[Rfam]
RNA sequence: CCAAUAUAUUCAUCUAUUCGAAUCUAGGAUAACAUGAUCUUUUGGUAACGAAAGAAUAUGAAGCUUAUCCGACAAUGCAUUUGAUAUAUUCACUUUUAAAUAUAUCCAUUUGUUAGAUUAGAUAUUCAAGGGUAACAUUUGUGAAUCU
Numbered sequence: 001c002c003a004a005u006a007u008a009u010u011c012a013u014c015u016a017u018u019c020g021a022a023u024c025u026a027g028g029a030u031a032a033c034a035u036g037a038u039c040u041u042u043u044g045g046u047a048a049c050g051a052a053a054g055a056a057u058a059u060g061a062a063g064c065u066u067a068u069c070c071g072a073c074a075a076u077g078c079a080u081u082u083g084a085u086a087u088a089u090u091c092a093c094u095u096u097u098a099a100a101u102a103u104a105u106c107c108a109u110u111u112g113u114u115a116g117a118u119u120a121g122a123u124a125u126u127c128a129a130g131g132g133u134a135a136c137a138u139u140u141g142u143g144a145a146u147c148u
Base pairs, nucleotide, nucleotide: 001020003018004017005016006015028069029068030067031066032065033060034059035058036057038055039054040053041052042051043050044049087102088101089100090099092097103124104123105122106121110117111116125143127141128140129139130138
RNA: Group II catalytic intron D1-D4-7
Organism: Smittium simulii